[Rfam]
RNA: DUF3577 RNA
RNA sequence: CGUAUCGGAGAAAUGCAGGAAACUGCGUGAAACUCGCCUGUAAUCCCGGCAUCAUCACACCAGUGAUGUGGCGACUUUUUUGACUGGCUGCUGCGGCGGCGAUUUU
Numbered sequence: 001c002g003u004a005u006c007g008g009a010g011a012a013a014u015g016c017a018g019g020a021a022a023c024u025g026c027g028u029g030a031a032a033c034u035c036g037c038c039u040g041u042a043a044u045c046c047c048g049g050c051a052u053c054a055u056c057a058c059a060c061c062a063g064u065g066a067u068g069u070g071g072c073g074a075c076u077u078u079u080u081u082g083a084c085u086g087g088c089u090g091c092u093g094c095g096g097c098g099g100c101g102a103u104u105u106u
Base pairs, nucleotide, nucleotide: 013028014027015026016025017024018023034074035073036072037071038070053068054067055066056065057064058063085101087100088099089098090097091096